[Rfam]
RNA: Bacterial small subunit ribosomal RNA, nucleotides 569 to 923
RNA sequence: GGCGUAAAGCGCGCGUAGGCGGUUUGUUAAGUGAGGUGUGAAAGCCCCGGGCUCAACCUGGGAACGGCAUCUUAUACUGGCAGGCUAGAGUAUGGCAGAGGUGAGUAGAAUUCCCGGUGUAGCGGUGAAAUGCGUAGAGAUCGGGAGGAAUACCAGUGGCGAAGGCGGCUCACUGGGCCAAUACUGACGCUGAGGUGCGAAAGCGUGGGGAGCAAACAGGAUUAGAUACCCUGGUAGUCCACGCUGUAAACGAUGUCGACUAGCCGUUGGGUCUAUUAAUAGAUUUAGUGGCGCAGCUAACGCGAUAAGUCGACCGCCUGGGGAGUACGGCCGCAAGGUUAAAACUCAAAUGAAU
Dot-bracket structure: (((.....(.((((.(.(((.(((((((.((((((((((......((((((.....))))))....))))))))..)))))))))...(((.((((...((((((((...((((((((...(((......)))......))))))))...).......((....)).)))))))..))))..)))...))))..))))....((((((...((...((((.........))))...))))))))..........((((((..((((((((((((......))))))))))))...((....)).....)))))))))).(((......((((....))))....)))........